[Rfam]
This 86-nucleotide RNA sequence from Schmidtea mediterranea belongs to the Rfam family "mir-2147 microRNA precursor family". Gene Ontology terms of the family: miRNA-mediated post-transcriptional gene silencing and RISC complex.

RNA sequence: CUUUGGAUGCCAACGGCGGAAGACUCGCACGUGACAUUGCUAAUUUUUUCCAUUUCACUGCGAGUGUUCCCGCGUUGAUUCCAAUU
Numbered sequence: 001c002u003u004u005g006g007a008u009g010c011c012a013a014c015g016g017c018g019g020a021a022g023a024c025u026c027g028c029a030c031g032u033g034a035c036a037u038u039g040c041u042a043a044u045u046u047u048u049u050c051c052a053u054u055u056c057a058c059u060g061c062g063a064g065u066g067u068u069c070c071c072g073c074g075u076u077g078a079u080u081c082c083a084a085u086u
Stems, first nucleotide, its partner, number of pairs: 003084005011077005018070004023065007031058003036053002039050001
The base pairs follow the family's consensus structure, which was predicted with RNAalifold. NCBI's taxonomy places the organism under Eukaryota, Protostomia, Lophotrochozoa, Rhabditophora, Schmidtea.